The family of this 86-nucleotide sequence from Candidatus Kinetoplastidibacterium crithidiae is "Bacterial small signal recognition particle RNA". The source organism's lineage runs through Bacteria, Pseudomonadota, Betaproteobacteria, Candidatus Kinetoplastidibacterium and Candidatus Kinetoplastidibacterium crithidiae.
[Rfam]
RNA sequence: UUAUCUUUGCAUGAUGAUGUAGUGAACUUGGUCAGAUUGGGAACAAAGCAGCCAUAACUAUAGAUAUUUCAGUGCAAAAGAUUUUA
Numbered sequence: 001u002u003a004u005c006u007u008u009g010c011a012u013g014a015u016g017a018u019g020u021a022g023u024g025a026a027c028u029u030g031g032u033c034a035g036a037u038u039g040g041g042a043a044c045a046a047a048g049c050a051g052c053c054a055u056a057a058c059u060a061u062a063g064a065u066a067u068u069u070c071a072g073u074g075c076a077a078a079a080g081a082u083u084u085u086a
Stems, first nucleotide, its partner, number of pairs: 002086002004080001006078004010072001012071003016067001018062006029054004037046003
Source information:
Rfam's curators write: The signal recognition particle (SRP) is a universally conserved ribonucleoprotein involved in the co-translational targeting of proteins to membranes.